[Rfam]
RNA: MIR8562 microRNA precursor family
RNA sequence: UUUUCUACAAAUCAGAAUGACUUGAAAUUUAGAGCGCGUGUUCAUAAAAAAUAGGCGAAUCUACGAAAAAUAUCAAAAAAAUAUUUUAUAUGAAAAAAAUGAUCAAAAUACCCCCGAAAAUUUUCGGGGGUAUUUUGAUCAAUUUAUUUUAGUUAAUUAUUUUAUUUAUAUUUUUAUUAGGUGCGCCUCACUAAGAUGUACACAUGCUCCAAAUUUCAAAUCAUUCUGAUUUGUAGAAAA
Numbered sequence: 001u002u003u004u005c006u007a008c009a010a011a012u013c014a015g016a017a018u019g020a021c022u023u024g025a026a027a028u029u030u031a032g033a034g035c036g037c038g039u040g041u042u043c044a045u046a047a048a049a050a051a052u053a054g055g056c057g058a059a060u061c062u063a064c065g066a067a068a069a070a071u072a073u074c075a076a077a078a079a080a081a082u083a084u085u086u087u088a089u090a091u092g093a094a095a096a097a098a099a100u101g102a103u104c105a106a107a108a109u110a111c112c113c114c115c116g117a118a119a120a121u122u123u124u125c126g127g128g129g130g131u132a133u134u135u136u137g138a139u140c141a142a143u144u145u146a147u148u149u150u151a152g153u154u155a156a157u158u159a160u161u162u163u164a165u166u167u168a169u170a171u172u173u174u175u176a177u178u179a180g181g182u183g184c185g186c187c188u189c190a191c192u193a194a195g196a197u198g199u200a201c202a203c204a205u206g207c208u209c210c211a212a213a214u215u216u217c218a219a220a221u222c223a224u225u226c227u228g229a230u231u232u233g234u235a236g237a238a239a240a
Stems, first nucleotide, its partner, number of pairs: 001240020022219009032209003036205001038203004043198003061180003066175008075166002078163003097145002100141014116123002